c-di-GMP-I-GGC riboswitch aptamer: a 107-nucleotide sequence from Bacillus infantis. The organism belongs to Bacillus infantis, within Bacteria. Pairs were carried over by alignment from the consensus structure, which is taken from published work.

[Rfam]
RNA sequence: GCAGAAAAAGGCAAACCUGUUGAAAGAUAGGGACGCAAAGUCACAGGUCUACCGCGCCUAUUGAGAGUAAAGUCGGAUGAGGCGCCAGGACGGCUGGAUUGCCUGGA
Numbered sequence: 001g002c003a004g005a006a007a008a009a010g011g012c013a014a015a016c017c018u019g020u021u022g023a024a025a026g027a028u029a030g031g032g033a034c035g036c037a038a039a040g041u042c043a044c045a046g047g048u049c050u051a052c053c054g055c056g057c058c059u060a061u062u063g064a065g066a067g068u069a070a071a072g073u074c075g076g077a078u079g080a081g082g083c084g085c086c087a088g089g090a091c092g093g094c095u096g097g098a099u100u101g102c103c104u105g106g107a
Base pairs, nucleotide, nucleotide: 003104004103011036012035016031017030018029019028020027021026034093039100040099041098042097044096045095046094047091048090049089